This 132-nucleotide sequence from Paracoccus thiocyanatus belongs to the Rfam family "TPP riboswitch aptamer (THI element)".

RNA sequence: GGCGCCACCAAGGGGAGCCCCGGCAAGGGGCUGAGAAACCGCUGGCCCCAUGCGACCUGGCGACGGGCGGCGCGGUGACUCUUCGAACCUGACCCGGAUCAUGCCGGCGGAGGAAUGGGAAUGAUCUACCUG
Numbered sequence: 001g002g003c004g005c006c007a008c009c010a011a012g013g014g015g016a017g018c019c020c021c022g023g024c025a026a027g028g029g030g031c032u033g034a035g036a037a038a039c040c041g042c043u044g045g046c047c048c049c050a051u052g053c054g055a056c057c058u059g060g061c062g063a064c065g066g067g068c069g070g071c072g073c074g075g076u077g078a079c080u081c082u083u084c085g086a087a088c089c090u091g092a093c094c095c096g097g098a099u100c101a102u103g104c105c106g107g108c109g110g111a112g113g114a115a116u117g118g119g120a121a122u123g124a125u126c127u128a129c130c131u132g
Stems, first nucleotide, its partner, number of pairs: 008118003011082004017031005038076005088113003094107004